[Rfam]
RNA: Bacterial RNase P class A
RNA sequence: CGAGUUGGCUGUACGGCAGCGGUGUGCAUCAGCACACUGAGGAAAGUCCGAGCAUCGCAGAGCAGGGUAGUUGAUAACGUCAACCGAGGGCGACCUCCGAGCCAGUGCAACAGAAAUAUACCGCCUUCUGUAUAGAAGGUAAGGGUGGAAAGGCGAGGUAAGAGCUCACCGGAGCGUCAGUGAUGACGCUGCCAUGUAAACCUUACCCGAUGCAACGCCAAUGGCAGUGGUAUGUUCAAUGGCUGCUCGUCAGAGCAUACGCUGUAGGCGGCUGGAGCUGUGCGGCAACGUACAGCCAAGAUAGAUUGCCGUACUCGACAAAACUCGGCUUACAGGUCGGCUCGCUUA
Dot-bracket structure: ((((((((((((((((((.((((((((....))))))))....[[[.[[[[[((((...[[[[.((((((((((.....)))))(((((....)))).)((...(((((...........(((((((((....)))))))..)).......((.(((.......))).)).((((((((....))))))).)..)))..)))))))))))))...((((..........((((((....((((.]]]]))))..))))))......))))......((((((((....))))))))..........)))))))..........]]]]]]]].).))))))))))....